The record is an 86-nucleotide RNA sequence from Plutella xylostella, which matches "mir-8536 microRNA precursor family" in Rfam.
Rfam links the family to the GO terms miRNA-mediated post-transcriptional gene silencing and RISC complex.
The base pairs follow the family's consensus structure, which was predicted with RNAalifold.
The sequence is in the family's curated seed alignment.
RNA sequence: UUCCUGACACGAGAUAGUGACAUAGCUGAGAUAGGUUUCAUUUCACACUAACUUAUCCCAGCUAUGUCACUGACUAAUGUCAGAUU
Number, nucleotide and partner (000 for none) at each position: 001u000002u000003c000004c083005u082006g081007a080008c079009a078010c000011g000012a075013g074014a000015u000016a071017g070018u069019g068020a067021c066022a065023u064024a063025g062026c061027u060028g059029a000030g057031a056032u055033a054034g053035g052036u051037u050038u000039c000040a000041u000042u000043u000044c000045a000046c000047a000048c000049u000050a037051a036052c035053u034054u033055a032056u031057c030058c000059c028060a027061g026062c025063u024064a023065u022066g021067u020068c019069a018070c017071u016072g000073a000074c013075u012076a000077a000078u009079g008080u007081c006082a005083g004084a000085u000086u000